The record is a 74-nucleotide sequence from Hymenochirus boettgeri, which matches "mir-126 microRNA precursor family" in Rfam. The source organism's lineage runs through Eukaryota, Bilateria, Dipnotetrapodomorpha, Anura and Hymenochirus. Rfam 15.1 lists 1,407 matches to the family in 631 species.

RNA sequence: UGGCGGUGCAUUAUUACUUUUGGUACGCGCUGUGUCACAUCAAAACUCGUACCGUGAGUAAUAAUGCGCGGCUG
Numbered sequence: 001u002g003g004c005g006g007u008g009c010a011u012u013a014u015u016a017c018u019u020u021u022g023g024u025a026c027g028c029g030c031u032g033u034g035u036c037a038c039a040u041c042a043a044a045a046c047u048c049g050u051a052c053c054g055u056g057a058g059u060a061a062u063a064a065u066g067c068g069c070g071g072c073u074g
Stems, first nucleotide, its partner, number of pairs: 009066010021054007029046001
Dot-bracket structure: ........((((((((((..(((((((.(................).)))))))..))))))))))........